Rfam assigns this 97-nucleotide RNA sequence from Burkholderia pseudomallei to the family "Burkholderia sRNA Bp1_Cand612_SIPHT".
It is one of the family's seed sequences.
The family's consensus secondary structure was predicted with RNAalifold.

[Rfam]
RNA sequence: AAAAAAAAUGGGCGCAACGCCCAUCUUGUUACCGGUGGUCGCACCUGAGCUACACAUCGAAUCCGUACGCCCAGCGACUCCGCGAUUAUAGCGAUUU
Dot-bracket structure: .......(((((((...)))))))...........(((((((....(((.(.(....................).).))).))))))).........